[Rfam]
RNA sequence: GCAGGUGAAAACUGAAUCCGCACACAUAUCGACACGUUGCCCUGGGUGCCCUGCGGGGUUGGACAGCGGGAUAUGUGGAGGCUCAAC
Numbered sequence: 001g002c003a004g005g006u007g008a009a010a011a012c013u014g015a016a017u018c019c020g021c022a023c024a025c026a027u028a029u030c031g032a033c034a035c036g037u038u039g040c041c042c043u044g045g046g047u048g049c050c051c052u053g054c055g056g057g058g059u060u061g062g063a064c065a066g067c068g069g070g071a072u073a074u075g076u077g078g079a080g081g082c083u084c085a086a087c
Base pairs, nucleotide, nucleotide: 023077024076025075026074027073028072029071030070035068036067037066038065039064041062042061048059049058050057051056
A member of the RNA family "t44 RNA" from Halopseudomonas salegens, 87 nucleotides long.
Rfam describes the family as follows. This family consists of a number of bacterial RNA genes of between 135 and 170 bases in length. The t44 gene has been identified in several species of enteric bacteria but homologs have also been identified in Pseudomonas and Coxiella species. The t44 gene is found between the map and rpsB genes in all species in the full alignment apart from Shigella flexneri. The function of this RNA is unknown.
A search with the family's covariance model found it, with a score of 71 bits.
By type it is a small RNA.
The base pairs follow the family's consensus structure, which was predicted with LocARNA.
The source organism's lineage runs through Bacteria, Pseudomonadati, Pseudomonadales, Pseudomonadaceae and Halopseudomonas.